Shown here is a 120-nucleotide RNA sequence from Lactobacillus rodentium, a member of the family "FMN riboswitch aptamer (RFN element)".
Pairs were carried over by alignment from the consensus structure, which is taken from published work.
The RFN element is a highly conserved domain that is found frequently in the 5'-untranslated regions of prokaryotic mRNAs that encode for flavin mononucleotide (FMN) biosynthesis and transport proteins.
RNA sequence: AAUUGUCUUCAGGACAGGGUGUAAUUCCCGACCGGCGGUUUACAGUCCGCGAGCCAAGUGUUUUGGUUGAAUCAGAUUAUUUCUGUACCGAUAGUAGAGUCUAGAUGAGAGAAGACAGAC
Numbered sequence: 001a002a003u004u005g006u007c008u009u010c011a012g013g014a015c016a017g018g019g020u021g022u023a024a025u026u027c028c029c030g031a032c033c034g035g036c037g038g039u040u041u042a043c044a045g046u047c048c049g050c051g052a053g054c055c056a057a058g059u060g061u062u063u064u065g066g067u068u069g070a071a072u073c074a075g076a077u078u079a080u081u082u083c084u085g086u087a088c089c090g091a092u093a094g095u096a097g098a099g100u101c102u103a104g105a106u107g108a109g110a111g112a113a114g115a116c117a118g119a120c
Base pairs, nucleotide, nucleotide: 003118004117005116006115007114008113009112010111017029018028019027031100032099033090034089035050036049037048038047045088046087053067054066055065071086073085074084075083092103093102094101